The record is a 114-nucleotide RNA sequence from Neodiprion lecontei, which matches "Potassium channel RNA editing signal" in Rfam. The match comes from Rfam's covariance-model search (93 bits). Rfam 15.1 lists 14,095 matches to the family in 1,000 species. The source organism's lineage runs through Eukaryota, Protostomia, Arthropoda, Pancrustacea and Neodiprion. This family represents a group of sequences related to the human potassium channel Kv1.1 hairpin element which directs the efficient modification of an adenosine to inosine by an adenosine deaminase acting on RNA (ADAR).
RNA sequence: GUCGGUUACGGAGACAUGGUGCCGAAGACGUACGUCGGGAUGUUCGUUGGCGCUCUUUGCGCCCUCGCCGGUGUGCUAACGAUCGCCCUCCCGGUCCCCGUCAUCGUCAGCAAC
Numbered sequence: 001g002u003c004g005g006u007u008a009c010g011g012a013g014a015c016a017u018g019g020u021g022c023c024g025a026a027g028a029c030g031u032a033c034g035u036c037g038g039g040a041u042g043u044u045c046g047u048u049g050g051c052g053c054u055c056u057u058u059g060c061g062c063c064c065u066c067g068c069c070g071g072u073g074u075g076c077u078a079a080c081g082a083u084c085g086c087c088c089u090c091c092c093g094g095u096c097c098c099c100g101u102c103a104u105c106g107u108c109a110g111c112a113a114c
Stems, first nucleotide, its partner, number of pairs: 001114002004111001008107004013102003018097002021095002037077002040074001049063003